This 79-nucleotide sequence from Drosophila yakuba belongs to the Rfam family "mir-9/mir-79 microRNA precursor family". Lineage of the source: Eukaryota > Aparaglossata > Brachycera > Acalyptratae > Sophophora. The literature on the family includes a 2001 paper in Science by Lagos-Quintana et al., "Identification of novel genes coding for small expressed RNAs". The base pairs follow the family's consensus structure, which was predicted with RNAalifold. The family has 214 seed sequences and 5,647 matches in Rfam 15.1.

RNA sequence: CUUGCCAUUGCUUUGGCGCUUUAGCUGUAUGAUAGAUUUAUACUACUUCAUAAAGCUAGAUUACCAAAGCAUUGGCUUC
Numbered sequence: 001c002u003u004g005c006c007a008u009u010g011c012u013u014u015g016g017c018g019c020u021u022u023a024g025c026u027g028u029a030u031g032a033u034a035g036a037u038u039u040a041u042a043c044u045a046c047u048u049c050a051u052a053a054a055g056c057u058a059g060a061u062u063a064c065c066a067a068a069g070c071a072u073u074g075g076c077u078u079c
Stems, first nucleotide, its partner, number of pairs: 004076002007073001009071008018062001020060007028052005